About this RNA: The record is a 104-nucleotide sequence from Paenibacillus sp. CAA11, which matches "TPP riboswitch aptamer (THI element)" in Rfam.
RNA sequence: GAAGUCCACUAGGGGAGCCGUCAGCGGCUGAGACAAGAGCAUAUCUUGGACCCUUUGAACCUGAUCUAGUUCGUACUAGCGUAGGAAAGUGGAGCCGGCUCGUU
Numbered sequence: 001g002a003a004g005u006c007c008a009c010u011a012g013g014g015g016a017g018c019c020g021u022c023a024g025c026g027g028c029u030g031a032g033a034c035a036a037g038a039g040c041a042u043a044u045c046u047u048g049g050a051c052c053c054u055u056u057g058a059a060c061c062u063g064a065u066c067u068a069g070u071u072c073g074u075a076c077u078a079g080c081g082u083a084g085g086a087a088a089g090u091g092g093a094g095c096c097g098g099c100u101c102g103u104u
Stems, first nucleotide, its partner, number of pairs: 006092005011054004017028004035047004060085004066079004

The source organism's lineage runs through Bacteria, Bacilli, Caryophanales, Paenibacillaceae and Paenibacillus.